RNA: SAM riboswitch aptamer (S box leader)
RNA sequence: UUCUUAUUUAGAGAGAUGGAGGGACUGGCCCUGAGAUAUCUCAGCAACAGACAUUUUUGUACUGUGCUAAUUCCAGUAGCGUUUUGCUUGAAGAUAAGAA
Number, nucleotide and partner (000 for none) at each position: 001u100002u099003c098004u097005u096006a095007u094008u093009u000010a000011g000012a000013g042014a041015g040016a039017u038018g000019g000020a000021g031022g030023g029024a000025c076026u075027g074028g073029c023030c022031c021032u000033g000034a000035g000036a000037u000038a017039u016040c015041u014042c013043a068044g067045c066046a065047a000048c064049a063050g000051a060052c059053a058054u000055u000056u000057u000058u053059g052060u051061a000062c000063u049064g048065u046066g045067c044068u043069a000070a000071u000072u092073c028074c027075a026076g025077u000078a088079g087080c086081g085082u000083u000084u000085u081086g080087c079088u078089u000090g000091a000092a072093g008094a007095u006096a005097a004098g003099a002100a001